[Rfam]
RNA: let-7 microRNA precursor family
Organism: Todus mexicanus
RNA sequence: GCGGGUUGAGGUAGUGGAUUGUACAGUUGGAGGGUGUCCCGCCCCCGCUCGGAGAUAACUGCACAUUCCACUGUCUUCCUCGC
Numbered sequence: 001g002c003g004g005g006u007u008g009a010g011g012u013a014g015u016g017g018a019u020u021g022u023a024c025a026g027u028u029g030g031a032g033g034g035u036g037u038c039c040c041g042c043c044c045c046c047g048c049u050c051g052g053a054g055a056u057a058a059c060u061g062c063a064c065a066u067u068c069c070a071c072u073g074u075c076u077u078c079c080u081c082g083c
Stems, first nucleotide, its partner, number of pairs: 001083005008077011020065003024061004032045003